[Rfam]
RNA sequence: UUGCGCCUGCGAUGGACGCAGCAUCGCCCCCAGGAGUGCCUUGCAGGCGGCCGUGGUGAUGUACCCGUCCGGUGAUCAGCAAUUUUGCUGAUUCAAAAUCUUUCC
Numbered sequence: 001u002u003g004c005g006c007c008u009g010c011g012a013u014g015g016a017c018g019c020a021g022c023a024u025c026g027c028c029c030c031c032a033g034g035a036g037u038g039c040c041u042u043g044c045a046g047g048c049g050g051c052c053g054u055g056g057u058g059a060u061g062u063a064c065c066c067g068u069c070c071g072g073u074g075a076u077c078a079g080c081a082a083u084u085u086u087g088c089u090g091a092u093u094c095a096a097a098a099u100c101u102u103u104c105c
Base pairs, nucleotide, nucleotide: 005048006047007046008045009044010043011042013071014070015069017067018066021062022061023060024059025058026057028056029055036052038051039050040049076091077090078089079088080087081086
Notes: This 105-nucleotide RNA belongs to the Rfam family "RT-5 RNA". Rfam classes the family as a small RNA. The base pairs follow the family's consensus structure, which is taken from published work. The sequence is in the family's curated seed alignment.